[Rfam]
RNA sequence: GUAGUCGGCCAGUGCCGAGGCCCUUCACACACAAGGGUUAAUGGGGUGCAACUCCCCCGCCCAUCUCGAGCGUCAUCGAGACCA
Numbered sequence: 001g002u003a004g005u006c007g008g009c010c011a012g013u014g015c016c017g018a019g020g021c022c023c024u025u026c027a028c029a030c031a032c033a034a035g036g037g038u039u040a041a042u043g044g045g046g047u048g049c050a051a052c053u054c055c056c057c058c059g060c061c062c063a064u065c066u067c068g069a070g071c072g073u074c075a076u077c078g079a080g081a082c083c084a
Stems, first nucleotide, its partner, number of pairs: 004074001005018005012049001019039007043057004058072003065080005
Annotation
Rfam assigns this 84-nucleotide RNA sequence from Tymovirus abelmoschi to the family "Tymovirus/Pomovirus/Furovirus tRNA-like 3' UTR element". Pairs were carried over by alignment from the consensus structure, which is taken from published work. The literature on the family includes a 2018 paper in Nat Commun by Hartwick et al., "Ribosome-induced RNA conformational changes in a viral 3'-UTR sense and regulate translation levels". About the family: This family represents a tRNA-like structure found in the 3' UTR of Tymoviruses, Pomoviruses and Furovirus. Rfam classes the family as a cis-regulatory element.